[Rfam]
RNA sequence: CAGCCCCAUCUGGAAGACUAGUGAUUUUGUUGUUGUCUCACUGCGCUCAACAACAAGUCCCAGUCUGCCGCAUGGUGCCGGCCA
Numbered sequence: 001c002a003g004c005c006c007c008a009u010c011u012g013g014a015a016g017a018c019u020a021g022u023g024a025u026u027u028u029g030u031u032g033u034u035g036u037c038u039c040a041c042u043g044c045g046c047u048c049a050a051c052a053a054c055a056a057g058u059c060c061c062a063g064u065c066u067g068c069c070g071c072a073u074g075g076u077g078c079c080g081g082c083c084a
Stems, first nucleotide, its partner, number of pairs: 001080001003078002006075004011070003015066005021061001023059005029054006
Shown here is an 84-nucleotide sequence from Sus scrofa, a member of the family "mir-7 microRNA precursor family".
Rfam 15.1 lists 2,589 matches to the family in 797 species.
About the family: This family represents the microRNA (miRNA) precursor mir-7.
The source organism's lineage runs through Eukaryota, Deuterostomia, Craniata, Sarcopterygii and Sus.